Source information: This 100-nucleotide RNA sequence from Veillonella sp. oral taxon 780 belongs to the Rfam family "TPP riboswitch aptamer (THI element)".
RNA sequence: AAGAGAACUUUGGGGAGCCUACUGGCUGAGAGUAAACGAAAGUUUUGACCCAUAACCUGAUUUGGAUAAUGCCAACGUAGGAUAAGUUUGAUUCGUCAUA
Numbered sequence: 001a002a003g004a005g006a007a008c009u010u011u012g013g014g015g016a017g018c019c020u021a022c023u024g025g026c027u028g029a030g031a032g033u034a035a036a037c038g039a040a041a042g043u044u045u046u047g048a049c050c051c052a053u054a055a056c057c058u059g060a061u062u063u064g065g066a067u068a069a070u071g072c073c074a075a076c077g078u079a080g081g082a083u084a085a086g087u088u089u090g091a092u093u094c095g096u097c098a099u100a
Base pairs, nucleotide, nucleotide: 006088007087008086009085010084011052012051013050014049016046017026018025019024034045035044036043037042056081057080058079059078062075063074064073065072
The organism belongs to Veillonella sp. oral taxon 780, within Bacteria. Pairs were carried over by alignment from the consensus structure, which is taken from published work. Vitamin B(1) in its active form thiamin pyrophosphate (TPP) is an essential coenzyme that is synthesised by coupling of pyrimidine and thiazole moieties in bacteria.